[Rfam]
RNA sequence: UAUCGACAAAGGCAAACCUGGCGAAAGCCAGCGACGCAAAGCUACAGGGGCUUUUGCAGCAAAAGCUGCAUGCCAGCCAGCCACCGAA
Numbered sequence: 001u002a003u004c005g006a007c008a009a010a011g012g013c014a015a016a017c018c019u020g021g022c023g024a025a026a027g028c029c030a031g032c033g034a035c036g037c038a039a040a041g042c043u044a045c046a047g048g049g050g051c052u053u054u055u056g057c058a059g060c061a062a063a064a065g066c067u068g069c070a071u072g073c074c075a076g077c078c079a080g081c082c083a084c085c086g087a088a
Stems, first nucleotide, its partner, number of pairs: 012037002018031005041081003047078002049074003057068004

The record is an 88-nucleotide sequence from Paenibacillus sedimenti, which matches "c-di-GMP-I riboswitch aptamer" in Rfam. The base pairs follow the family's consensus structure, which is taken from published work. NCBI's taxonomy places the organism under Bacteria, Bacillati, Bacillota, Bacilli, Paenibacillus. The match comes from Rfam's covariance-model search (69 bits).